[Rfam]
A member of the RNA family "SAM riboswitch aptamer (S box leader)" from Fusobacterium necrogenes, 88 nucleotides long. NCBI's taxonomy places the organism under Bacteria, Fusobacteriati, Fusobacteriota, Fusobacteriales, Fusobacterium.
RNA sequence: AAACCAUCAAGAGAAACUGAGAGACUGGCUCUAUGACGUUUCAGCAACCUAUCUUAUAGAUGUGGUGCUAAUUCCAGACAGAUGGAAG
Dot-bracket structure: ...(((((....(((((...(((.[[[[)))......)))))((((.((((((.....)))).))))))...(]]]]..))))))...
Record summary:
Rfam describes the family as follows. The SAM riboswitch is found upstream of a number of genes which code for proteins involved in methionine or cysteine biosynthesis in Gram-positive bacteria. The match comes from Rfam's covariance-model search (65 bits).